[Rfam]
RNA sequence: GUGCGAAAACUGCCGAAUUCCCGUGCACAGGGAAACGGGGGAACCAGUUUUUCCGGGUGAAUUGAUCCCGCCUCUGGCAAGGAUCAUAGGGUGCCUUCAACCGAACCCUCCAGCUAACCUCGCAGGCAAUUGGAAGGAGUCAC
Numbered sequence: 001g002u003g004c005g006a007a008a009a010c011u012g013c014c015g016a017a018u019u020c021c022c023g024u025g026c027a028c029a030g031g032g033a034a035a036c037g038g039g040g041g042a043a044c045c046a047g048u049u050u051u052u053c054c055g056g057g058u059g060a061a062u063u064g065a066u067c068c069c070g071c072c073u074c075u076g077g078c079a080a081g082g083a084u085c086a087u088a089g090g091g092u093g094c095c096u097u098c099a100a101c102c103g104a105a106c107c108c109u110c111c112a113g114c115u116a117a118c119c120u121c122g123c124a125g126g127c128a129a130u131u132g133g134a135a136g137g138a139g140u141c142a143c
Base pairs, nucleotide, nucleotide: 011128012127013126014125018034019033020032021031022030036122037121038120039119040118055108056107057106063086064085065084066083067082068081089102090101092099
This 143-nucleotide sequence from Cohnella zeiphila belongs to the Rfam family "c-di-AMP riboswitch aptamer (ydaO/yuaA leader)". The source organism's lineage runs through Bacteria, Bacillati, Bacillota, Bacilli and Cohnella. A search with the family's covariance model found it, with a score of 69 bits. Its family is annotated with cyclic-di-AMP binding and regulation of gene expression in the Gene Ontology.